The record is a 106-nucleotide sequence from Malassezia vespertilionis, which matches "tRNA" in Rfam. Lineage of the source: Eukaryota > Malasseziomycetes > Malasseziales > Malasseziaceae > Malassezia. Gene Ontology term of the family: triplet codon-amino acid adaptor activity. Rfam 15.1 lists 5,335,975 matches to the family in 14,413 species.
RNA sequence: GACAAGAUGGCCGAGUGGUUAAGGCGGUUGCCUGCUAUCAGCACAACCGGUACGGUUGGUAAGCAAUUGGGUUCUGCCCGCGUGAGUUCGAAUCUCAUUCUUGUCG
Numbered sequence: 001g002a003c004a005a006g007a008u009g010g011c012c013g014a015g016u017g018g019u020u021a022a023g024g025c026g027g028u029u030g031c032c033u034g035c036u037a038u039c040a041g042c043a044c045a046a047c048c049g050g051u052a053c054g055g056u057u058g059g060u061a062a063g064c065a066a067u068u069g070g071g072u073u074c075u076g077c078c079c080g081c082g083u084g085a086g087u088u089c090g091a092a093u094c095u096c097a098u099u100c101u102u103g104u105c106g
Stems, first nucleotide, its partner, number of pairs: 001105007010025003027067005082098005